TPP riboswitch aptamer (THI element): a 106-nucleotide sequence from Microvirga guangxiensis.
Vitamin B(1) in its active form thiamin pyrophosphate (TPP) is an essential coenzyme that is synthesised by coupling of pyrimidine and thiazole moieties in bacteria.
The base pairs follow the family's consensus structure, which is taken from published work.
Lineage of the source: Bacteria > Pseudomonadota > Hyphomicrobiales > Methylobacteriaceae > Microvirga.

[Rfam]
RNA sequence: AGCAUCUCCUUGGGGUGCCCAUUCGGGCUGAGAGGUCUUUUUAAAAGAUCAACCCAUCGAACCUGAUCCGGAUCAUGCCGGCGGAGGGAUUGCGAGAUGAUGAGCG
Numbered sequence: 001a002g003c004a005u006c007u008c009c010u011u012g013g014g015g016u017g018c019c020c021a022u023u024c025g026g027g028c029u030g031a032g033a034g035g036u037c038u039u040u041u042u043a044a045a046a047g048a049u050c051a052a053c054c055c056a057u058c059g060a061a062c063c064u065g066a067u068c069c070g071g072a073u074c075a076u077g078c079c080g081g082c083g084g085a086g087g088g089a090u091u092g093c094g095a096g097a098u099g100a101u102g103a104g105c106g
Stems, first nucleotide, its partner, number of pairs: 006094001008092001011056004017028004035049005062087003068081004